[Rfam]
RNA sequence: GGGUUCGGGAGCAGCUUGCUUCCGGAGGAAAUUUAGAUGGCCGGGCCGCCAUCU
Numbered sequence: 001g002g003g004u005u006c007g008g009g010a011g012c013a014g015c016u017u018g019c020u021u022c023c024g025g026a027g028g029a030a031a032u033u034u035a036g037a038u039g040g041c042c043g044g045g046c047c048g049c050c051a052u053c054u
Base pairs, nucleotide, nucleotide: 005025006024007023008022009021010020011019012018035054036053037052038051039050040049041048
RNA: nhaA-I RNA